Annotation
This 198-nucleotide RNA sequence from Medicago truncatula belongs to the Rfam family "MIR2670 microRNA precursor family".

RNA sequence: UAGGGGUAAAAUAGUGAGUGGCCGACUUGGGGAGUGAUCGACCAUUGGGAUAAGUUUAAAUCUGCUUUUUUAAACCCUAGAAACUUUUUACUGUGGGUAAAAAGAAUAUUCUUCGGGUAAAAAAAAAUUAGAUUUAAAUUUAGCCCAAGGGUUGAUGAUGUAUUUUCCAAAAGAAGACUGCUCACUAUUUUACCCCAA
Numbered sequence: 001u002a003g004g005g006g007u008a009a010a011a012u013a014g015u016g017a018g019u020g021g022c023c024g025a026c027u028u029g030g031g032g033a034g035u036g037a038u039c040g041a042c043c044a045u046u047g048g049g050a051u052a053a054g055u056u057u058a059a060a061u062c063u064g065c066u067u068u069u070u071u072a073a074a075c076c077c078u079a080g081a082a083a084c085u086u087u088u089u090a091c092u093g094u095g096g097g098u099a100a101a102a103a104g105a106a107u108a109u110u111c112u113u114c115g116g117g118u119a120a121a122a123a124a125a126a127a128u129u130a131g132a133u134u135u136a137a138a139u140u141u142a143g144c145c146c147a148a149g150g151g152u153u154g155a156u157g158a159u160g161u162a163u164u165u166u167c168c169a170a171a172a173g174a175a176g177a178c179u180g181c182u183c184a185c186u187a188u189u190u191u192a193c194c195c196c197a198a
Base pairs, nucleotide, nucleotide: 003196004195005194006193007192008191009190010189011188012187013186014185015184016183017182018181019180020179021178023176026173027172028171030168031167032166033165034164037159038158039157040156041152042151043150045148046147047146048145049144051142052141053140054139056137057136058135059134060133061132062131063130064129066127067126068125069124070123071122074118075117076116077115079113080112084104085103086102087101088100089099090098091097092096
The family has 7 seed sequences and 188 matches in Rfam 15.1. The source organism's lineage runs through Eukaryota, Spermatophyta, Magnoliopsida, Fabales and Medicago. It scores 175 bits against the family's covariance model.